[Rfam]
RNA sequence: UCAACAAAUAGAGGUGCGCUGCGGAAGAGUACGUCUUGCCAUACAAACGCGGGGGGCGUGGAAAGACGGAAAGGCCAAGGCGCCGAAGUUCUGGCCGUACCCCUCGGACGGCGAGGGCUGGGGUUCCCGUGAACAACGGUCGCCCUGUCAUGAAAGGCACGGCCUUUCGUGGAGCGCUAUUUACGGU
Numbered sequence: 001u002c003a004a005c006a007a008a009u010a011g012a013g014g015u016g017c018g019c020u021g022c023g024g025a026a027g028a029g030u031a032c033g034u035c036u037u038g039c040c041a042u043a044c045a046a047a048c049g050c051g052g053g054g055g056g057c058g059u060g061g062a063a064a065g066a067c068g069g070a071a072a073g074g075c076c077a078a079g080g081c082g083c084c085g086a087a088g089u090u091c092u093g094g095c096c097g098u099a100c101c102c103c104u105c106g107g108a109c110g111g112c113g114a115g116g117g118c119u120g121g122g123g124u125u126c127c128c129g130u131g132a133a134c135a136a137c138g139g140u141c142g143c144c145c146u147g148u149c150a151u152g153a154a155a156g157g158c159a160c161g162g163c164c165u166u167u168c169g170u171g172g173a174g175c176g177c178u179a180u181u182u183a184c185g186g187u
Stems, first nucleotide, its partner, number of pairs: 006182006016083005023076002032068006039061001087119006094112005120146005127139004148172007
The family of this 187-nucleotide RNA sequence from Brevibacillus sp. WF146 is "Lysine riboswitch aptamer". Riboswitches are metabolite binding domains within certain messenger RNAs that serve as precision sensors for their corresponding targets. The match comes from Rfam's covariance-model search (92 bits). The literature on the family includes a 2003 paper in Nucleic Acids Res by Rodionov et al., "Regulation of lysine biosynthesis and transport genes in bacteria: yet another RNA riboswitch?".